[Rfam]
RNA sequence: GGGGUGCUAGAUAGACUUACCUCCACGCGGUGUACCCUGGGCAACGUAUACUCAUCAUACGGCAAAUAAGUCAAU
Number, nucleotide and partner (000 for none) at each position: 001g038002g037003g036004g035005u034006g033007c032008u000009a000010g000011a000012u000013a000014g000015a000016c000017u000018u000019a031020c030021c029022u000023c000024c000025a000026c000027g000028c000029g021030g020031u019032g007033u006034a005035c004036c003037c002038u001039g000040g000041g000042c000043a000044a000045c061046g060047u059048a058049u057050a000051c000052u000053c000054a000055u000056c000057a049058u048059a047060c046061g045062g000063c000064a000065a000066a000067u000068a000069a000070g000071u000072c000073a000074a000075u000